[Rfam]
Notes:
A member of the RNA family "MIR2617 microRNA precursor family" from Medicago truncatula, 91 nucleotides long. The family's consensus secondary structure was predicted with RNAalifold.
RNA sequence: AUGUAGUGUGACAUGCCCGUUUGGGUUUUACUCUGAUGUUGAGUUAUUAUUAUUAUUUAAUUAGUUUUGGGAAACAGGGUGUUACAAUGUU
Numbered sequence: 001a002u003g004u005a006g007u008g009u010g011a012c013a014u015g016c017c018c019g020u021u022u023g024g025g026u027u028u029u030a031c032u033c034u035g036a037u038g039u040u041g042a043g044u045u046a047u048u049a050u051u052a053u054u055a056u057u058u059a060a061u062u063a064g065u066u067u068u069g070g071g072a073a074a075c076a077g078g079g080u081g082u083u084a085c086a087a088u089g090u091u
Stems, first nucleotide, its partner, number of pairs: 003090003007086008016078002019075003